[Rfam]
RNA sequence: CACCUCUGGAAAGAACGGACCGCCCGGCCGGCGCGGCAGCCGUCACCGACGGGGCAAACGAGCCGCUGAUCAGCGGCUCGUGGAAUCUCUCAGGUCCCAUGACAGAGCGGGGAGG
Numbered sequence: 001c002a003c004c005u006c007u008g009g010a011a012a013g014a015a016c017g018g019a020c021c022g023c024c025c026g027g028c029c030g031g032c033g034c035g036g037c038a039g040c041c042g043u044c045a046c047c048g049a050c051g052g053g054g055c056a057a058a059c060g061a062g063c064c065g066c067u068g069a070u071c072a073g074c075g076g077c078u079c080g081u082g083g084a085a086u087c088u089c090u091c092a093g094g095u096c097c098c099a100u101g102a103c104a105g106a107g108c109g110g111g112g113a114g115g
Stems, first nucleotide, its partner, number of pairs: 001110001004107005015043004045095003048091002052089003
This 115-nucleotide RNA from Kocuria coralli belongs to the Rfam family "Glycine riboswitch aptamer". The match comes from Rfam's covariance-model search (42 bits). Pairs were carried over by alignment from the consensus structure.